The family of this 47-nucleotide sequence from Pandoraea terrae is "Guanidine-II riboswitch aptamer (mini-ykkC)". The organism belongs to Pandoraea, within Bacteria. Rfam links the family to the GO term regulation of gene expression.

[Rfam]
RNA sequence: GCUACGGGACGACUUGUAGCGCGCUGCCUUCCGCGGGGACGACCCCG
Numbered sequence: 001g002c003u004a005c006g007g008g009a010c011g012a013c014u015u016g017u018a019g020c021g022c023g024c025u026g027c028c029u030u031c032c033g034c035g036g037g038g039a040c041g042a043c044c045c046c047g
Base pairs, nucleotide, nucleotide: 001020002019003018004017005016006015007014008013034047035046036045037044038043